[Rfam]
RNA: TPP riboswitch aptamer (THI element)
RNA sequence: AUCAUCAACAUGGGGAGCUUAUAAAAGGCUGAGAGGAAGUUUAUAUAAUUAAAUUUCGACCCUUAUAACCUGUUUGGGUAAUGCCAGCGUAGGGAAUUAUCUCUUUUAUUUUU
Numbered sequence: 001a002u003c004a005u006c007a008a009c010a011u012g013g014g015g016a017g018c019u020u021a022u023a024a025a026a027g028g029c030u031g032a033g034a035g036g037a038a039g040u041u042u043a044u045a046u047a048a049u050u051a052a053a054u055u056u057c058g059a060c061c062c063u064u065a066u067a068a069c070c071u072g073u074u075u076g077g078g079u080a081a082u083g084c085c086a087g088c089g090u091a092g093g094g095a096a097u098u099a100u101c102u103c104u105u106u107u108a109u110u111u112u113u
Stems, first nucleotide, its partner, number of pairs: 007100001010097001012062003017029004036057008069093004074087004